[Rfam]
RNA sequence: GUGCUGGCUUAGUCGAGUGGGUACAUCGCAUUUCUGCAACCUGUUCAAACAUGGGACAUUGAGCCGGUCGCGGGUUCGACUCCAGGGUUCGAACUCGCAACUACCCAAUACCCACUGACGCCAUCCAGCACUUUU
Numbered sequence: 001g002u003g004c005u006g007g008c009u010u011a012g013u014c015g016a017g018u019g020g021g022u023a024c025a026u027c028g029c030a031u032u033u034c035u036g037c038a039a040c041c042u043g044u045u046c047a048a049a050c051a052u053g054g055g056a057c058a059u060u061g062a063g064c065c066g067g068u069c070g071c072g073g074g075u076u077c078g079a080c081u082c083c084a085g086g087g088u089u090c091g092a093a094c095u096c097g098c099a100a101c102u103a104c105c106c107a108a109u110a111c112c113c114a115c116u117g118a119c120g121c122c123a124u125c126c127a128g129c130a131c132u133u134u135u
Stems, first nucleotide, its partner, number of pairs: 002130006012119004017115004026079003